[Rfam]
RNA: SAH (S-adenosyl-L-homocysteine) riboswitch aptamer
Organism: Mitsuaria sp. WAJ17
RNA sequence: UGAUCCGAGGAGCGUUGCAACCUUCAUCGCCUGCAAUGGGCGGCAGAAGGCCAGGCUCGGAACCGGUCGAAGCUCCACACCCUGGAGCUGACCCCUUGCAACCGCGCUCACCCGCU
Numbered sequence: 001u002g003a004u005c006c007g008a009g010g011a012g013c014g015u016u017g018c019a020a021c022c023u024u025c026a027u028c029g030c031c032u033g034c035a036a037u038g039g040g041c042g043g044c045a046g047a048a049g050g051c052c053a054g055g056c057u058c059g060g061a062a063c064c065g066g067u068c069g070a071a072g073c074u075c076c077a078c079a080c081c082c083u084g085g086a087g088c089u090g091a092c093c094c095c096u097u098g099c100a101a102c103c104g105c106g107c108u109c110a111c112c113c114g115c116u
Base pairs, nucleotide, nucleotide: 002063004061005060006059007058008057021050022049023048024047025046